[Rfam]
RNA sequence: AGCACUUUGUGUGUGUAUUUGUCCAACAGGUAGACAAAGGCAUGAAAGACAGGUGCAAAAAUAAACCCUCCUUUGCAGCCCAGAACUCAUGGUUGAUAUGAGUUUUGAUACACAUAGGAAGGAAUAUG
Numbered sequence: 001a002g003c004a005c006u007u008u009g010u011g012u013g014u015g016u017a018u019u020u021g022u023c024c025a026a027c028a029g030g031u032a033g034a035c036a037a038a039g040g041c042a043u044g045a046a047a048g049a050c051a052g053g054u055g056c057a058a059a060a061a062u063a064a065a066c067c068c069u070c071c072u073u074u075g076c077a078g079c080c081c082a083g084a085a086c087u088c089a090u091g092g093u094u095g096a097u098a099u100g101a102g103u104u105u106u107g108a109u110a111c112a113c114a115u116a117g118g119a120a121g122g123a124a125u126a127u128g
Stems, first nucleotide, its partner, number of pairs: 002056005008051003012047001015041002018038005065125001068122002072118004081107010
Record summary
This 128-nucleotide RNA from Nannospalax galili belongs to the Rfam family "Small nucleolar RNA SNORA40". The snoRNA ACA 40 belongs to the H/ACA family of snoRNAs and guides the pseudouridylation of 28S rRNA subunit at position U4565. NB This family has a high threshold value to exclude a large number of closely related sequences that do not appear to have conserved H and ACA boxes, and may be pseudogenes. Rfam links the family to the GO terms nucleolus and RNA processing. The family's RNA type in Rfam is H/ACA-box small nucleolar RNA. The base pairs follow the family's consensus structure, which was predicted with RNAalifold.